A member of the RNA family "mir-459 microRNA precursor family" from Mola mola, 81 nucleotides long. The family's consensus secondary structure was predicted with RNAalifold. The match comes from Rfam's covariance-model search (66 bits). NCBI's taxonomy places the organism under Eukaryota, Actinopterygii, Neoteleostei, Ctenosquamata, Mola. The family has 5 seed sequences and 114 matches in Rfam 15.1. Gene Ontology terms of the family: miRNA-mediated post-transcriptional gene silencing and RISC complex.
[Rfam]
RNA sequence: CGCGUCGCUGUCAGUAACAAGGAUUCAUCCUGUUGUAAUGCUGCAGCCUAACAGGAUAUCACUGUUACUGUGGGCGACUGU
Numbered sequence: 001c002g003c004g005u006c007g008c009u010g011u012c013a014g015u016a017a018c019a020a021g022g023a024u025u026c027a028u029c030c031u032g033u034u035g036u037a038a039u040g041c042u043g044c045a046g047c048c049u050a051a052c053a054g055g056a057u058a059u060c061a062c063u064g065u066u067a068c069u070g071u072g073g074g075c076g077a078c079u080g081u
Stems, first nucleotide, its partner, number of pairs: 012070008022060003029055007039046001